The record is a 175-nucleotide RNA from Desulfosarcina ovata, which matches "Group II catalytic intron D1-D4-3" in Rfam. Group II introns are found in rRNA, tRNA and mRNA of organelles in fungi, plants and protists, and also in mRNA in bacteria.
[Rfam]
RNA sequence: GUCGUCGUGAGGCGGGGUCUGGAGGAAGCCCAAUCCGAAAGCGCGGGGCGACGAACAGGAACCGGAUCUGAGGUGUGGUACAUCCGGGACGAGUGGGCACGUGACCACGAAGUCCUCCAUCCGCAAUUGGGGUGUGCUUUAUAAAUCCGGCGUUUACGCGCAGAAAGUUCUGUGU
Dot-bracket structure: .(((((....)))))............((.((...(....((((((((((...........((((((.....(((.(((((((...((((..((((........))))...))))................))))))).)))..))))))))))).))))).....)...)).))